Shown here is a 127-nucleotide RNA from Glycine max, a member of the family "MIR1520 microRNA precursor family". The base pairs follow the family's consensus structure, which was predicted with RNAalifold. Its Rfam clan is "MIR1520 microRNA precursor clan". Rfam 15.1 lists 1,934 matches to the family in 15 species.
[Rfam]
RNA sequence: UCACAAAGAAACGUUGAUUGCCACGUGUUACAUUCUGAUCGGACAAUGAACAGAAAAAUGUUAGAGAGGGCUCUUGAGCGCACCUUUUCGUAUCUAAUCAGAACGUGACAUGUGAUAGUCAAUGUUU
Numbered sequence: 001u002c003a004c005a006a007a008g009a010a011a012c013g014u015u016g017a018u019u020g021c022c023a024c025g026u027g028u029u030a031c032a033u034u035c036u037g038a039u040c041g042g043a044c045a046a047u048g049a050a051c052a053g054a055a056a057a058a059u060g061u062u063a064g065a066g067a068g069g070g071c072u073c074u075u076g077a078g079c080g081c082a083c084c085u086u087u088u089c090g091u092a093u094c095u096a097a098u099c100a101g102a103a104c105g106u107g108a109c110a111u112g113u114g115a116u117a118g119u120c121a122a123u124g125u126u127u
Stems, first nucleotide, its partner, number of pairs: 020116001022114002025111002029107003033103004038098002